[Rfam]
RNA sequence: UUCCGGGUGAUGAAGAAAAUCGUUUGGAUUCCCACUGAUAUUUCAUGAUUAGUGUAACCAGCUACUUCUGAUGGAU
Numbered sequence: 001u002u003c004c005g006g007g008u009g010a011u012g013a014a015g016a017a018a019a020u021c022g023u024u025u026g027g028a029u030u031c032c033c034a035c036u037g038a039u040a041u042u043u044c045a046u047g048a049u050u051a052g053u054g055u056a057a058c059c060a061g062c063u064a065c066u067u068c069u070g071a072u073g074g075a076u
Stems, first nucleotide, its partner, number of pairs: 002075004
Shown here is a 76-nucleotide RNA sequence from Triticum turgidum, a member of the family "Small nucleolar RNA R12".
The family's consensus secondary structure was predicted with PFOLD.
Rfam 15.1 lists 992 matches to the family in 220 species.
The source organism's lineage runs through Eukaryota, Streptophyta, Spermatophyta, Poales and Triticum turgidum.
snoR12 is a C/D box small nucleolar RNA, which acts as a methylation guide for 25S ribosomal RNA in plants. snoR12 has been alternatively named snoZ44 in Arabidopsis and snoZ131 in rice.
It is annotated as a C/D-box small nucleolar RNA.